[Rfam]
RNA sequence: GUCUUCUCUUCAAAGCACCCUGCUCAAACUGCAGGAGCCGAGCCUUCUGGGUCUGGCUCCCGCGGCCGUGUAAGCACGGGUACACCAGGGAAGGAGAGUAAAAGCCACGGCGUCGGAAACGAGGCUGGGAGGGACCUCUUUCUUAAUGUCCAUUUUCCUUUGCCUCAAGAUCCCGUGCUACACGU
Dot-bracket structure: .................((.((((...((.(..((.((((.(((.....))).)))).)).....).))...))))..))......................((.(((((.(..............(.(..(((..............)))..).)..............).)))))))......
Numbered sequence: 001g002u003c004u005u006c007u008c009u010u011c012a013a014a015g016c017a018c019c020c021u022g023c024u025c026a027a028a029c030u031g032c033a034g035g036a037g038c039c040g041a042g043c044c045u046u047c048u049g050g051g052u053c054u055g056g057c058u059c060c061c062g063c064g065g066c067c068g069u070g071u072a073a074g075c076a077c078g079g080g081u082a083c084a085c086c087a088g089g090g091a092a093g094g095a096g097a098g099u100a101a102a103a104g105c106c107a108c109g110g111c112g113u114c115g116g117a118a119a120c121g122a123g124g125c126u127g128g129g130a131g132g133g134a135c136c137u138c139u140u141u142c143u144u145a146a147u148g149u150c151c152a153u154u155u156u157c158c159u160u161u162g163c164c165u166c167a168a169g170a171u172c173c174c175g176u177g178c179u180a181c182a183c184g185u
Stems, first nucleotide, its partner, number of pairs: 018080002021076004028069002031066001034060002037057004042052003103179002106177005112171001127156001129154001132151003
Shown here is a 185-nucleotide sequence from Cyprinodon variegatus, a member of the family "Small nucleolar RNA SNORA81". The base pairs follow the family's consensus structure, which was predicted with WAR. A search with the family's covariance model found it, with a score of 93 bits.